[Rfam]
RNA sequence: AUUCGUGUGAGGAGUGCUAAGCGCCUCUUCAGGGUCGAAACAAGGACAGACUCCUGCAACGCGCUUCACUU
Numbered sequence: 001a002u003u004c005g006u007g008u009g010a011g012g013a014g015u016g017c018u019a020a021g022c023g024c025c026u027c028u029u030c031a032g033g034g035u036c037g038a039a040a041c042a043a044g045g046a047c048a049g050a051c052u053c054c055u056g057c058a059a060c061g062c063g064c065u066u067c068a069c070u071u
Stems, first nucleotide, its partner, number of pairs: 019066005026059001031055003034051003
Shown here is a 71-nucleotide sequence from Synechococcus sp. WH 7803, a member of the family "Cyano-1 RNA".
The family has 265 seed sequences and 283 matches in Rfam 15.1.
Pairs were carried over by alignment from the consensus structure, which is taken from published work.
By type it is a small RNA.